[Rfam]
RNA: Molybdenum/Tungsten riboswitch aptamer (Moco RNA motif)
RNA sequence: AUGGCGAUAGCUCUUCGAGUCCUGAUAACCUAAAACAAGCUAAAGUUAUGGUUCCAGGACCGGUGAGCCGAAAGGCUCCGAGGGUGCAAGGUGGAAACACCGGCGCCUCCCGAAUUCGGAAAGGAGAACACGAUGGGAGCAA
Number, nucleotide and partner (000 for none) at each position: 001a000002u000003g000004g000005c000006g000007a000008u000009a000010g000011c000012u127013c126014u125015u124016c123017g000018a000019g060020u059021c058022c057023u056024g055025a000026u000027a053028a052029c051030c050031u000032a000033a000034a047035a046036c045037a000038a000039g000040c000041u000042a000043a000044a000045g036046u035047u034048a000049u000050g030051g029052u028053u027054c000055c024056a023057g022058g021059a020060c019061c000062g000063g000064u000065g078066a077067g076068c075069c000070g000071a000072a000073a000074g000075g068076c067077u066078c065079c000080g000081a000082g108083g107084g106085u105086g104087c103088a000089a000090g101091g100092u099093g098094g000095a000096a000097a000098c093099a092100c091101c090102g000103g087104c086105g085106c084107c083108u082109c119110c118111c000112g000113a000114a000115u000116u000117c000118g110119g109120a000121a000122a000123g016124g015125a014126g013127a012128a000129c000130a000131c000132g000133a000134u000135g000136g000137g000138a000139g000140c000141a000142a000